[Rfam]
RNA sequence: CCCCUUUUCUAAGGCCGGCGAAACGCCUAUAUGAGCCUUGCCGGGGCAACCCGGCUAUGGCGAUAAACGGUCGGUGUAAUAAACCUAUUGGACCCGGGGGCGGUACCCGGCGCCUCCACCAAAAACCGGCGGGAUCUCAAGAUGAGGCCGGCUUUUGAUGGGGGCGAAAUAGGAUCGACAAGGGCGUAAAGAUCGAACUUUUGCUCGGCAUGAUACCGCCGUUAUCGGGUCACAAGUGUAGUUGCAAAUGACAACAACGCUAAGGAAUACGCUCUCGCUGCCUAAUGGCGGUGCGGGAAUUCCGCUCUAAGUCCUUACGGUUAGCCCCGUAAGGCGGGGUUCGGAGGUACCUGGCAACAGAAACCUCCACC
Number, nucleotide and partner (000 for none) at each position: 001c000002c000003c000004c000005u000006u000007u000008u000009c000010u000011a000012a000013g000014g000015c000016c000017g000018g000019c000020g000021a000022a000023a000024c000025g000026c000027c000028u000029a000030u000031a000032u000033g000034a000035g000036c000037c000038u000039u000040g055041c054042c053043g052044g051045g000046g000047c000048a000049a000050c000051c044052c043053g042054g041055c040056u000057a000058u000059g205060g204061c203062g202063a201064u000065a000066a000067a000068c000069g199070g198071u197072c195073g194074g193075u192076g000077u000078a000079a000080u000081a000082a000083a000084c184085c183086u182087a000088u181089u180090g179091g000092a000093c000094c110095c109096g108097g107098g106099g000100g000101c000102g000103g000104u000105a000106c098107c097108c096109g095110g094111c166112g165113c164114c163115u162116c161117c160118a000119c000120c000121a000122a000123a000124a000125a000126c000127c000128g000129g000130c000131g000132g000133g000134a000135u000136c000137u000138c000139a000140a000141g000142a000143u000144g000145a000146g000147g000148c000149c000150g000151g000152c000153u000154u000155u000156u000157g000158a000159u000160g117161g116162g115163g114164g113165c112166g111167a000168a000169a000170u000171a000172g000173g000174a000175u000176c000177g000178a000179c090180a089181a088182g086183g085184g084185c000186g000187u000188a000189a000190a000191g000192a075193u074194c073195g072196a000197a071198c070199u069200u000201u063202u062203g061204c060205u059206c221207g220208g219209c218210a000211u232212g231213a230214u000215a000216c228217c227218g209219c208220c207221g206222u000223u000224a000225u000226c000227g217228g216229g000230u213231c212232a211233c000234a000235a000236g000237u000238g000239u000240a000241g000242u000243u000244g000245c000246a000247a000248a000249u000250g000251a000252c000253a000254a000255c000256a000257a000258c000259g000260c000261u000262a000263a000264g000265g000266a000267a000268u000269a000270c000271g000272c000273u000274c000275u000276c000277g000278c000279u000280g000281c000282c000283u000284a000285a000286u000287g000288g000289c000290g000291g000292u000293g000294c000295g000296g000297g000298a000299a000300u000301u000302c000303c000304g000305c000306u000307c000308u000309a000310a000311g000312u000313c000314c000315u000316u000317a000318c000319g000320g000321u000322u000323a000324g000325c000326c000327c000328c000329g000330u000331a000332a000333g000334g000335c000336g000337g352338g351339g350340u349341u000342c000343g368344g367345a366346g365347g364348u363349a340350c339351c338352u337353g000354g000355c000356a000357a000358c000359a000360g000361a000362a000363a348364c347365c346366u345367c344368c343369a000370c000371c000
Rfam assigns this 371-nucleotide sequence from Agrobacterium fabrum to the family "Alphaproteobacteria transfer-messenger RNA".
Taxonomically the source falls in Agrobacterium fabrum (Bacteria, Pseudomonadati, Pseudomonadota, Agrobacterium tumefaciens complex).
Bacterial tmRNA, also known as 10Sa RNA or SsrA, is named for its dual tRNA and mRNA-like properties. Its role is to liberate the mRNA from a stalled ribosome.
It is one of the family's seed sequences.